[Rfam]
A member of the RNA family "SAM riboswitch aptamer (S box leader)" from Parasporobacterium paucivorans, 97 nucleotides long.
The source organism's lineage runs through Bacteria, Bacillati, Bacillota, Parasporobacterium and Parasporobacterium paucivorans.
Pairs were carried over by alignment from the consensus structure, which is taken from published work.
RNA sequence: CUCUUAUUCAGAGUGAUGGAGAUACAAGGAUCUACGAAGUCACGGCAACCCCUUAACAGGAAGGUGCCAACCUGAGCGAGCAAUCGAUCAAUAAGAG
Numbered sequence: 001c002u003c004u005u006a007u008u009c010a011g012a013g014u015g016a017u018g019g020a021g022a023u024a025c026a027a028g029g030a031u032c033u034a035c036g037a038a039g040u041c042a043c044g045g046c047a048a049c050c051c052c053u054u055a056a057c058a059g060g061a062a063g064g065u066g067c068c069a070a071c072c073u074g075a076g077c078g079a080g081c082a083a084u085c086g087a088u089c090a091a092u093a094a095g096a097g
Stems, first nucleotide, its partner, number of pairs: 001097008013043005021032003029073001044068004049064002051060003077086003
From the family's description: The SAM riboswitch is found upstream of a number of genes which code for proteins involved in methionine or cysteine biosynthesis in Gram-positive bacteria.